[Rfam]
The family of this 213-nucleotide RNA from Bagarius yarrelli is "Small nucleolar RNA U3". About the family: Small nucleolar RNAs (snoRNAs) are involved in the processing and modification of rRNA in the nucleolus. There are two main classes of snoRNAs: the box C/D class, and the box H/ACA class. U3 snoRNA is a member of the box C/D class. Its Rfam clan is "U3 clan". The family has 87 seed sequences and 19,072 matches in Rfam 15.1. The base pairs follow the family's consensus structure, which is taken from published work. The source organism's lineage runs through Eukaryota, Deuterostomia, Vertebrata, Ostariophysi and Bagarius. A reference for the family is Marz and Stadler (2010), "Comparative analysis of eukaryotic U3 snoRNA", RNA Biol.
RNA sequence: AAGACUAUACUUUCAGGGAUCAUUUCUAUAGUUACUAACUAGGAAAUGUGAUUUGAUAGUGUUUCGUCUCCCUAAUCACGAUGACGAGCUCUGAUGUGCUUUUCUGAGCGUGAAUCGGGUUUGAAUAUGUGCUUGUUGUACAGUUUCAGAUCAUUGAUGAACGUUCUUUGUUUCAUCUGAAGCAAACGAGGAAAAGUGCAUGAUCGGAGUGAU
Numbered sequence: 001a002a003g004a005c006u007a008u009a010c011u012u013u014c015a016g017g018g019a020u021c022a023u024u025u026c027u028a029u030a031g032u033u034a035c036u037a038a039c040u041a042g043g044a045a046a047u048g049u050g051a052u053u054u055g056a057u058a059g060u061g062u063u064u065c066g067u068c069u070c071c072c073u074a075a076u077c078a079c080g081a082u083g084a085c086g087a088g089c090u091c092u093g094a095u096g097u098g099c100u101u102u103u104c105u106g107a108g109c110g111u112g113a114a115u116c117g118g119g120u121u122u123g124a125a126u127a128u129g130u131g132c133u134u135g136u137u138g139u140a141c142a143g144u145u146u147c148a149g150a151u152c153a154u155u156g157a158u159g160a161a162c163g164u165u166c167u168u169u170g171u172u173u174c175a176u177c178u179g180a181a182g183c184a185a186a187c188g189a190g191g192a193a194a195a196g197u198g199c200a201u202g203a204u205c206g207g208a209g210u211g212a213u
Base pairs, nucleotide, nucleotide: 002040003039009032010031011030015027016026017025018024048065050063054061075213076212077211078210079209094201095200096199097198098197099196100195101194102193103192104191105190108164109163110162118152119151120150121149124146125145127144128142129141130140131139132138168186169184170183171182172181173180174179